[Rfam]
RNA sequence: ACAUAGUGUUACCAGCAGCAACACAUGCCAAUUUAAUUUUAUUAUUCAAUACCCACUUAUGUGGAUGUUUGAUUCUGGAAAUAAUAUAUGAAUUUCAAGUAAUCCUUGUCCCCUGCUGCAUCCCAAUUCUGAAUCUAGUUGGGAAGAUUCUGAAGGUAAUGCAUCUAACACGUGACUAUAAAUGAGUGUGUACAA
Numbered sequence: 001a002c003a004u005a006g007u008g009u010u011a012c013c014a015g016c017a018g019c020a021a022c023a024c025a026u027g028c029c030a031a032u033u034u035a036a037u038u039u040u041a042u043u044a045u046u047c048a049a050u051a052c053c054c055a056c057u058u059a060u061g062u063g064g065a066u067g068u069u070u071g072a073u074u075c076u077g078g079a080a081a082u083a084a085u086a087u088a089u090g091a092a093u094u095u096c097a098a099g100u101a102a103u104c105c106u107u108g109u110c111c112c113c114u115g116c117u118g119c120a121u122c123c124c125a126a127u128u129c130u131g132a133a134u135c136u137a138g139u140u141g142g143g144a145a146g147a148u149u150c151u152g153a154a155g156g157u158a159a160u161g162c163a164u165c166u167a168a169c170a171c172g173u174g175a176c177u178a179u180a181a182a183u184g185a186g187u188g189u190g191u192a193c194a195a
Stems, first nucleotide, its partner, number of pairs: 023191003034185001036183003041179002045175002050063003065164004071123001074120001078117001091114001096108004127154003131150006
RNA: Beta-globin co-transcriptional cleavage ribozyme